[Rfam]
RNA: Archaeal large subunit ribosomal RNA, nucleotides 939 to 1392
RNA sequence: CCUCCCGAAAGUGGUCGCAGCCAUGCCUAGCGCGAGGUAGCUAUCGGUGUAGAGCACUGAUUGGCGAGUUUGGAGGGAGACCUCUGGCUCACCUGUCAAACUCCGAAUCUGGUGGCGCCUAAGACCGCUGGAGUCAGGGCGCAGGGGGUAAGCUCCUGCUCCGAAAGGGAAACAACCCAGACUGAGGUUAAGGCCCCUAAAUGCCGGCUAAAUGUUAAGUUGAAGGAAGUCUCCGUUCUGAGACAGCGGGAAGGUAGGCUUAGAAGCAGCCGUCCUUUAAACAACGCGUAACAGCGAACCCGUUAAGGGUGGAGGCACCGAAAAUGGACGGGACUAAGCCGGCUGCCGAUACCCCAGGACAGGUGAAGAAAUAGUAGCCUGAUUCCGUAGGGAGGCAUCCGGCGAGGGUAGAAACACGGUCUUAAGAUCGUGUGGACCUCGUUGGAAAGAGAAC
Number, nucleotide and partner (000 for none) at each position: 001c395002c394003u393004c392005c391006c390007g000008a000009a000010a000011g024012u023013g022014g021015u020016c000017g000018c000019a000020g015021c014022c013023a012024u011025g000026c133027c131028u130029a129030g128031c127032g126033c000034g000035a000036g119037g118038u117039a000040g116041c115042u114043a113044u112045c111046g110047g109048u000049g000050u000051a000052g104053a102054g101055c000056a000057c000058u000059g097060a096061u095062u000063g093064g092065c000066g090067a089068g088069u000070u000071u086072g085073g084074a083075g082076g081077g000078a000079g000080a000081c076082c075083u074084c073085u072086g071087g000088c068089u067090c066091a000092c064093c063094u000095g061096u060097c059098a000099a000100a000101c054102u053103c000104c052105g000106a000107a000108u000109c047110u046111g045112g044113u043114g042115g041116c040117g038118c037119c036120u000121a000122a000123g000124a000125c000126c032127g031128c030129u029130g028131g027132a000133g026134u000135c000136a000137g162138g161139g160140c000141g159142c158143a157144g156145g155146g154147g000148g000149u000150a000151a000152g000153c000154u146155c145156c144157u143158g142159c141160u139161c138162c137163g000164a000165a000166a000167g178168g177169g176170a000171a000172a000173c000174a000175a000176c169177c168178c167179a000180g000181a000182c357183u356184g355185a000186g353187g352188u351189u000190a000191a000192g347193g346194c345195c000196c000197c000198u000199a000200a000201a344202u000203g343204c342205c341206g340207g339208c338209u000210a000211a000212a000213u000214g000215u000216u000217a000218a000219g000220u000221u000222g000223a000224a000225g319226g318227a000228a000229g316230u315231c314232u313233c312234c311235g310236u309237u308238c307239u000240g000241a000242g000243a000244c000245a000246g303247c302248g301249g300250g299251a000252a276253g275254g274255u000256a000257g271258g270259c269260u000261u000262a000263g000264a000265a000266g000267c000268a000269g259270c258271c257272g000273u000274c254275c253276u252277u281278u000279a000280a000281a277282c000283a000284a000285c000286g295287c294288g000289u000290a000291a000292c000293a000294g287295c286296g000297a000298a000299c250300c249301c248302g247303u246304u000305a000306a000307g238308g237309g236310u235311g234312g233313a232314g231315g230316c229317a000318c226319c225320g000321a000322a000323a000324a000325u000326g000327g000328a000329c000330g000331g000332g000333a000334c000335u000336a000337a000338g208339c207340c206341g205342g204343c203344u201345g194346c193347c192348g000349a000350u000351a188352c187353c186354c000355c184356a183357g182358g385359a384360c381361a380362g379363g378364u377365g000366a000367a000368g000369a000370a000371a000372u000373a000374g000375u000376a000377g364378c363379c362380u361381g360382a000383u000384u359385c358386c000387g000388u000389a000390g006391g005392g004393a003394g002395g001396c449397a000398u446399c445400c444401g443402g442403c441404g440405a439406g438407g437408g000409u000410a000411g000412a000413a000414a433415c432416a431417c430418g429419g428420u427421c426422u000423u000424a000425a000426g421427a420428u419429c418430g417431u416432g415433u414434g000435g000436a000437c407438c406439u405440c404441g403442u402443u401444g400445g399446a398447a000448a000449g396450a000451g000452a000453a000454c000